[Rfam]
RNA sequence: GCAUGGCAGAAUUCUGUAAUACUCAUGUCAGUAGUAUAUGCAGUCAGACACCAUGCCAGAUUAUCAUUCACUCUUUAUAACACAGUGAUAAGAUCUUUAGUAUCCAUCUACUUUACGCAAGAGUGAAUACAAUC
Numbered sequence: 001g002c003a004u005g006g007c008a009g010a011a012u013u014c015u016g017u018a019a020u021a022c023u024c025a026u027g028u029c030a031g032u033a034g035u036a037u038a039u040g041c042a043g044u045c046a047g048a049c050a051c052c053a054u055g056c057c058a059g060a061u062u063a064u065c066a067u068u069c070a071c072u073c074u075u076u077a078u079a080a081c082a083c084a085g086u087g088a089u090a091a092g093a094u095c096u097u098u099a100g101u102a103u104c105c106a107u108c109u110a111c112u113u114u115a116c117g118c119a120a121g122a123g124u125g126a127a128u129a130c131a132a133u134c
Base pairs, nucleotide, nucleotide: 001056002055003054004053005052006051014043015042016041017040018039067127068126069125071123072122073121074120075119084112085111086110087104088103089102090101
The record is a 134-nucleotide sequence from Atractosteus spatula, which matches "Small nucleolar RNA SNORA15" in Rfam.
The literature on the family includes a 2001 paper in EMBO J by Huttenhofer et al., "RNomics: an experimental approach that identifies 201 candidates for novel, small, non-messenger RNAs in mouse".
Its family is annotated with RNA processing and nucleolus in the Gene Ontology.
The family's consensus secondary structure was predicted with RNAfold.
The organism belongs to Atractosteus, within Eukaryota.
Rfam describes the family as follows. ACA15 is a member of the H/ACA class of snoRNA that guide the sites of modification of uridines to pseudouridines.